[Rfam]
RNA sequence: GCGGAAACAAUUGUUUCCGUUCACUCCUCACACCACACUCCGUCCGGCAAUGUUCGGACGGUU
Numbered sequence: 001g002c003g004g005a006a007a008c009a010a011u012u013g014u015u016u017c018c019g020u021u022c023a024c025u026c027c028u029c030a031c032a033c034c035a036c037a038c039u040c041c042g043u044c045c046g047g048c049a050a051u052g053u054u055c056g057g058a059c060g061g062u063u
Base pairs, nucleotide, nucleotide: 001020002019003018004017005016006015007014008013041060042059043058044057045056046055047054